A member of the RNA family "RT-2 RNA", 223 nucleotides long. Pairs were carried over by alignment from the consensus structure, which is taken from published work.
RNA sequence: CUGGGUCAAACGGAGUAACCGGAAGGUGAAAGACGACCUUAGCAAAAGGAGAAGUACUUCCCUGGUCCACGAGGCCAAAAACUGCCCUUUGAUGCUCAAGCACGGACGCUGCUUGCAUGGCGGGAGGAUGUGCCUAUUCCCGUUUCAUGUGCUUGAGCAACGCAGAUUAGACGGCACCCUACAACCCAUCUGUACGAAGGAGCGAAUACUUUUUAUGACCAGC
Numbered sequence: 001c002u003g004g005g006u007c008a009a010a011c012g013g014a015g016u017a018a019c020c021g022g023a024a025g026g027u028g029a030a031a032g033a034c035g036a037c038c039u040u041a042g043c044a045a046a047a048g049g050a051g052a053a054g055u056a057c058u059u060c061c062c063u064g065g066u067c068c069a070c071g072a073g074g075c076c077a078a079a080a081a082c083u084g085c086c087c088u089u090u091g092a093u094g095c096u097c098a099a100g101c102a103c104g105g106a107c108g109c110u111g112c113u114u115g116c117a118u119g120g121c122g123g124g125a126g127g128a129u130g131u132g133c134c135u136a137u138u139c140c141c142g143u144u145u146c147a148u149g150u151g152c153u154u155g156a157g158c159a160a161c162g163c164a165g166a167u168u169a170g171a172c173g174g175c176a177c178c179c180u181a182c183a184a185c186c187c188a189u190c191u192g193u194a195c196g197a198a199g200g201a202g203c204g205a206a207u208a209c210u211u212u213u214u215a216u217g218a219c220c221a222g223c
Stems, first nucleotide, its partner, number of pairs: 004038004019026002063077004084203002086200006093194001094158010108116002119144007162193005168188001169180002